[Rfam]
RNA sequence: GUAUCCUUCGCGAAUGAACUCGAUCCUGAACGCACUUCGACGCCGCCGCUCGCCGCUUCCCUAGGGAUGCCGCUGGCUCGUCAAGCAUUCGCGCUCGUCAUGGUUCGGUCACAUUGAAGCGCAGAGAAUGAAGCCACGGAAACACCGUGGCUUUUGU
Numbered sequence: 001g002u003a004u005c006c007u008u009c010g011c012g013a014a015u016g017a018a019c020u021c022g023a024u025c026c027u028g029a030a031c032g033c034a035c036u037u038c039g040a041c042g043c044c045g046c047c048g049c050u051c052g053c054c055g056c057u058u059c060c061c062u063a064g065g066g067a068u069g070c071c072g073c074u075g076g077c078u079c080g081u082c083a084a085g086c087a088u089u090c091g092c093g094c095u096c097g098u099c100a101u102g103g104u105u106c107g108g109u110c111a112c113a114u115u116g117a118a119g120c121g122c123a124g125a126g127a128a129u130g131a132a133g134c135c136a137c138g139g140a141a142a143c144a145c146c147g148u149g150g151c152u153u154u155u156g157u
Stems, first nucleotide, its partner, number of pairs: 005126001007124002009097002011093002031085001038080003042077003045073002048070002053065001130154010